[Rfam]
RNA sequence: GCUUGAUAAUAGCAAACCACUUGAAAGGGUGGGACGCAAAGCCACUGGCCUAAAUCUCGAUUCGGCGGGAUAUGGCAGCAGGGUUGCCGGG
Numbered sequence: 001g002c003u004u005g006a007u008a009a010u011a012g013c014a015a016a017c018c019a020c021u022u023g024a025a026a027g028g029g030u031g032g033g034a035c036g037c038a039a040a041g042c043c044a045c046u047g048g049c050c051u052a053a054a055u056c057u058c059g060a061u062u063c064g065g066c067g068g069g070a071u072a073u074g075g076c077a078g079c080a081g082g083g084u085u086g087c088c089g090g091g
Stems, first nucleotide, its partner, number of pairs: 012037002017032006040085004045081003048076003055070004
Dot-bracket structure: ...........((...((((((....))))))...))..((((.((((((....((((........))))...)))..)))))))......
This 91-nucleotide RNA from an Olavius algarvensis Delta 1 endosymbiont belongs to the Rfam family "c-di-GMP-I riboswitch aptamer". The match comes from Rfam's covariance-model search (79 bits). Lineage of the source: Bacteria > delta/epsilon subdivisions > Deltaproteobacteria.